RNA sequence: GGAGUGGUCGUGCUUAAGGUAUGGCGGACCCGGGGGCAGUACCCGGCGCCUCCACCAUCGAGCGCAGAUAGAGUAUGUGUCCUGAGCCAGAGGGCUGUGACGGAACAUGCUUGAAAGGGAGGCGGGCGCUGAGUCCGUCGAGUUCCUUUCUGCGCUUUAUUGUGGGGGCGAAACAGGCUCGACGGUAUGUCGAAAGCCGGCUAGGGUCCCGCGAGGGAAAACCCAGCUUCGAAGCGCCAUUCAAACGCCAACGACAAUGCGUUUGCGCCGCAGGCGCUCGCUGCCUAA
Numbered sequence: 001g002g003a004g005u006g007g008u009c010g011u012g013c014u015u016a017a018g019g020u021a022u023g024g025c026g027g028a029c030c031c032g033g034g035g036g037c038a039g040u041a042c043c044c045g046g047c048g049c050c051u052c053c054a055c056c057a058u059c060g061a062g063c064g065c066a067g068a069u070a071g072a073g074u075a076u077g078u079g080u081c082c083u084g085a086g087c088c089a090g091a092g093g094g095c096u097g098u099g100a101c102g103g104a105a106c107a108u109g110c111u112u113g114a115a116a117g118g119g120a121g122g123c124g125g126g127c128g129c130u131g132a133g134u135c136c137g138u139c140g141a142g143u144u145c146c147u148u149u150c151u152g153c154g155c156u157u158u159a160u161u162g163u164g165g166g167g168g169c170g171a172a173a174c175a176g177g178c179u180c181g182a183c184g185g186u187a188u189g190u191c192g193a194a195a196g197c198c199g200g201c202u203a204g205g206g207u208c209c210c211g212c213g214a215g216g217g218a219a220a221a222c223c224c225a226g227c228u229u230c231g232a233a234g235c236g237c238c239a240u241u242c243a244a245a246c247g248c249c250a251a252c253g254a255c256a257a258u259g260c261g262u263u264u265g266c267g268c269c270g271c272a273g274g275c276g277c278u279c280g281c282u283g284c285c286u287a288a
Stems, first nucleotide, its partner, number of pairs: 008200003020189003025184002030046005047170009211227002
The record is a 288-nucleotide RNA from Candidatus Kaiserbacteria bacterium RIFCSPLOWO2_02_FULL_51_13, which matches "permuted transfer-messenger RNA" in Rfam.
The source organism's lineage runs through Bacteria, Bacteria candidate phyla and Candidatus Kaiseribacteriota.
Rfam describes the family as follows. Bacterial tmRNA, also known as 10Sa RNA or SsrA, is named for its dual tRNA and mRNA-like properties. Its role is to liberate the mRNA from a stalled ribosome.
The family's RNA type in Rfam is non-coding RNA gene.